[Rfam]
RNA sequence: UCGAUGAUUUAAAAUUGAAGACUCGCCUCAUUGGCAAAAAGGCCUAUAAAACAGACCUGCUAAAAGCGAUUUGCAAAAUGCGGAAUAUGAGAGUGGCAGGGUAAAAACCUGACUCUGUAAAUUUAUCAAUAUCGAGG
Numbered sequence: 001u002c003g004a005u006g007a008u009u010u011a012a013a014a015u016u017g018a019a020g021a022c023u024c025g026c027c028u029c030a031u032u033g034g035c036a037a038a039a040a041g042g043c044c045u046a047u048a049a050a051a052c053a054g055a056c057c058u059g060c061u062a063a064a065a066g067c068g069a070u071u072u073g074c075a076a077a078a079u080g081c082g083g084a085a086u087a088u089g090a091g092a093g094u095g096g097c098a099g100g101g102u103a104a105a106a107a108c109c110u111g112a113c114u115c116u117g118u119a120a121a122u123u124u125a126u127c128a129a130u131a132u133c134g135a136g137g
Stems, first nucleotide, its partner, number of pairs: 001135006010125004022091004027083002031080001034074002048071002059067002095114002097111004
RNA: icd-II ncRNA motif